Group II catalytic intron D1-D4-7: a 143-nucleotide RNA from Pelodictyon luteolum. Rfam describes the family as follows. Group II introns are found in rRNA, tRNA and mRNA of organelles in fungi, plants and protists, and also in mRNA in bacteria.
[Rfam]
RNA sequence: CCAGUUGUGCCGUCAACUGCCCCCACCGGCACAUGCAGGAUGAGCAAUCGCCCUGUGUGAAGCUACCGGAAACGUACCCGCGGGAAACCGUAGGCCGACCCGUGAGGAGAAGCUGAAUCUGCCAGUAGCAGGCGGAGAGGGGC
Numbered sequence: 001c002c003a004g005u006u007g008u009g010c011c012g013u014c015a016a017c018u019g020c021c022c023c024c025a026c027c028g029g030c031a032c033a034u035g036c037a038g039g040a041u042g043a044g045c046a047a048u049c050g051c052c053c054u055g056u057g058u059g060a061a062g063c064u065a066c067c068g069g070a071a072a073c074g075u076a077c078c079c080g081c082g083g084g085a086a087a088c089c090g091u092a093g094g095c096c097g098a099c100c101c102g103u104g105a106g107g108a109g110a111a112g113c114u115g116a117a118u119c120u121g122c123c124a125g126u127a128g129c130a131g132g133c134g135g136a137g138a139g140g141g142g143c
Stems, first nucleotide, its partner, number of pairs: 002019006027068003031064001032059008041050003080091004093114003100107002118136006